Rfam assigns this 68-nucleotide RNA sequence from Cerasibacillus terrae to the family "Bacillaceae-1 RNA". It scores 38 bits against the family's covariance model. It is annotated as a small RNA. Taxonomically the source falls in Cerasibacillus (Bacteria, Bacillota, Bacilli, Bacillaceae).
[Rfam]
RNA sequence: CGCAGGGGACCUUCUGCUAAAACCGCCCACGUCCUGUGGGCAACACAGAAGUCACCACAACACGCGAG
Dot-bracket structure: ..........((((((.........(((((.....))))).....))))))......(.........)